RNA sequence: UAAUUACUUUAAUGAUGAAUACUAUGUUGGUAGGGACAUCUGAGAAAAUCUGAUGAAUGCAUCAGUUCUGAGAAGUUA
Numbered sequence: 001u002a003a004u005u006a007c008u009u010u011a012a013u014g015a016u017g018a019a020u021a022c023u024a025u026g027u028u029g030g031u032a033g034g035g036a037c038a039u040c041u042g043a044g045a046a047a048a049u050c051u052g053a054u055g056a057a058u059g060c061a062u063c064a065g066u067u068c069u070g071a072g073a074a075g076u077u078a
Stems, first nucleotide, its partner, number of pairs: 001078005
Small nucleolar RNA SNORD74: a 78-nucleotide RNA sequence from Danionella cerebrum. Taxonomically the source falls in Danionella (Eukaryota, Eumetazoa, Otophysi, Danionidae). Pairs were carried over by alignment from the consensus structure, which was predicted with PFOLD. Its Rfam clan is "SNORD74 clan".